[Rfam]
RNA: Glutamine-II riboswitch aptamer
RNA sequence: AAAUGUUCACCCCCUCUUGAGGGGGCGCAGAUGCUCCAAGCCAUGGAACGGGGACUUGGA
Numbered sequence: 001a002a003a004u005g006u007u008c009a010c011c012c013c014c015u016c017u018u019g020a021g022g023g024g025g026c027g028c029a030g031a032u033g034c035u036c037c038a039a040g041c042c043a044u045g046g047a048a049c050g051g052g053g054a055c056u057u058g059g060a
Stems, first nucleotide, its partner, number of pairs: 004050005010025005035060006041053002